[Rfam]
RNA sequence: GGAAGCGUAUUUCAUCCGGUGGUGGGCGUGGUCUUCAAAACCACUGAGCGGCCGCAAAGCCGCUGAUCGGUUCGACUCCGAUACGCUUCC
Numbered sequence: 001g002g003a004a005g006c007g008u009a010u011u012u013c014a015u016c017c018g019g020u021g022g023u024g025g026g027c028g029u030g031g032u033c034u035u036c037a038a039a040a041c042c043a044c045u046g047a048g049c050g051g052c053c054g055c056a057a058a059g060c061c062g063c064u065g066a067u068c069g070g071u072u073c074g075a076c077u078c079c080g081a082u083a084c085g086c087u088u089c090c
Stems, first nucleotide, its partner, number of pairs: 001090009011026006028044005047064005067081004
Rfam assigns this 90-nucleotide RNA from Candidatus Solibacter usitatus to the family "Selenocysteine transfer RNA". NCBI's taxonomy places the organism under Bacteria, Pseudomonadati, Terriglobia, Solibacteraceae, Candidatus Solibacter usitatus. It is one of the family's seed sequences.